[Rfam]
RNA sequence: UAUAAUAUUUUUGGGUUGUUUGGGAACGGUUAGCACUCCCUUUUAAGAAAGGGGGUGAUUAUGAUAUCAACAUUUGAGGCUAUGUAUCUUAUGAUAGCGUUUGCAACGCUUGUUGUUUUAAUCAUAAAAAAGAAAUAACCGCUCCCAGCCAAGGAAUUGCGGUUAUUCUUUAGUAACCCGAUUUAGGCUAACCGUUCCCGGUUAGACAACCUACGGGGCUGGCGUGCUUGCAACACGUCAG
Dot-bracket structure: ((.....((..(((.((.(.(((((..((((..((.(((((........))))).))........(.(((((.......(............).........((...)).))))).)...................))))..)))))).........(((............))).........)).)))((((....))))..)).....)).....((((((((.(...).))))))))
The record is a 241-nucleotide RNA from Allolucifera butyrica, which matches "BsrG" in Rfam. The literature on the family includes a 2013 paper in Nucleic Acids Res by Jahn and Brantl, "One antitoxin--two functions: SR4 controls toxin mRNA decay and translation". bsrE, bsrG and bsrH pair through intermolecular interactions with antisense sRNAs. They form type I toxin/antitoxin system that includes an mRNA encoding for a short, toxic peptide (bsrE, bsrG and bsrH) and an antitoxin that is comprised of an antisense RNA. bsrG encodes a 39-amino-acid toxin, and the 180 nucleotide antisense sRNA called SR4 acts as the antitoxin (they overlap by 123 nucleotides).